[Rfam]
RNA sequence: AUGAACUCGAGGUCGACAAAAACGCGACGUCCUGUCGCAUUGUCGACACUAGUACGUCCUGUACG
Numbered sequence: 001a002u003g004a005a006c007u008c009g010a011g012g013u014c015g016a017c018a019a020a021a022a023c024g025c026g027a028c029g030u031c032c033u034g035u036c037g038c039a040u041u042g043u044c045g046a047c048a049c050u051a052g053u054a055c056g057u058c059c060u061g062u063a064c065g
Stems, first nucleotide, its partner, number of pairs: 012047006024038005052064004
Rfam assigns this 65-nucleotide sequence from Cytobacillus dafuensis to the family "Bacillaceae-1 RNA". NCBI's taxonomy places the organism under Bacteria, Bacillota, Bacilli, Bacillaceae, Cytobacillus.